[Rfam]
The family of this 176-nucleotide RNA from Oryza sativa is "MIR807 microRNA precursor family".
RNA sequence: AACCACACUAUCAAUGGAUAGAUUCACCCGCGAAAUGACGCGGUUGUUUCACCUAGGACAAGGACAUGGCAUCCUAUUACCAGCCAUCGCACGAAAUUAAUAGGAUGCCACGUCCAUAUCCUAGAUGAAACAACCACGUCAUAUCAUGGGUGAAUUCAUUCAUUGAUAGUAUGAUU
Numbered sequence: 001a002a003c004c005a006c007a008c009u010a011u012c013a014a015u016g017g018a019u020a021g022a023u024u025c026a027c028c029c030g031c032g033a034a035a036u037g038a039c040g041c042g043g044u045u046g047u048u049u050c051a052c053c054u055a056g057g058a059c060a061a062g063g064a065c066a067u068g069g070c071a072u073c074c075u076a077u078u079a080c081c082a083g084c085c086a087u088c089g090c091a092c093g094a095a096a097u098u099a100a101u102a103g104g105a106u107g108c109c110a111c112g113u114c115c116a117u118a119u120c121c122u123a124g125a126u127g128a129a130a131c132a133a134c135c136a137c138g139u140c141a142u143a144u145c146a147u148g149g150g151u152g153a154a155u156u157c158a159u160u161c162a163u164u165g166a167u168a169g170u171a172u173g174a175u176u
Stems, first nucleotide, its partner, number of pairs: 001176002004173002007170001009168007017160003021156008030147001032145002035142005042135007051126001054123002057120002063114003069108011086097002

Background: The base pairs follow the family's consensus structure, which was predicted with WAR. The sequence is in the family's curated seed alignment. A reference for the family is Luo et al. (2006), "Rice embryogenic calli express a unique set of microRNAs, suggesting regulatory roles of microRNAs in plant post-embryogenic development", FEBS Lett.